RNA sequence: GACAAAAGGCAAGCGUGAAGGAUUUGAACCUGCAGCAGGUUCGGUUGAGCAAAGCGAAACAACGCUGCAUUAAGCAACGGGCCGACAGGCCGAGGGACGCCGAGUUAUCCUGCACGACCCAUCG
Number, nucleotide and partner (000 for none) at each position: 001g000002a000003c000004a000005a000006a000007a000008g000009g000010c000011a000012a000013g000014c000015g115016u114017g113018a000019a111020g110021g109022a000023u107024u000025u000026g000027a000028a000029c000030c000031u000032g000033c092034a000035g090036c089037a000038g000039g000040u087041u085042c084043g083044g000045u000046u056047g055048a000049g000050c000051a000052a000053a000054g000055c047056g046057a000058a000059a000060c000061a000062a000063c079064g078065c000066u076067g075068c074069a000070u000071u000072a000073a000074g068075c067076a066077a000078c064079g063080g000081g000082c000083c043084g042085a041086c000087a040088g000089g036090c035091c000092g033093a000094g000095g000096g000097a000098c000099g000100c000101c000102g000103a000104g000105u000106u000107a023108u000109c021110c020111u019112g000113c017114a016115c015116g000117a000118c000119c000120c000121a000122u000123c000124g000
RNA: RtT RNA
Organism: Erwinia sp. 198